[Rfam]
RNA sequence: GGCGCACGACCUUUUACUCGGAUCGUCCGGCACGUUCCUGCCGGUGGAAGGAAACACCC
Numbered sequence: 001g002g003c004g005c006a007c008g009a010c011c012u013u014u015u016a017c018u019c020g021g022a023u024c025g026u027c028c029g030g031c032a033c034g035u036u037c038c039u040g041c042c043g044g045u046g047g048a049a050g051g052a053a054a055c056a057c058c059c
Base pairs, nucleotide, nucleotide: 010051011050012049013048014047015046016045027044028043029042030041031040032039
The record is a 59-nucleotide RNA from Rhizocola hellebori, which matches "msiK RNA" in Rfam. The family's RNA type in Rfam is cis-regulatory element. It scores 56 bits against the family's covariance model. The organism belongs to Rhizocola, within Bacteria.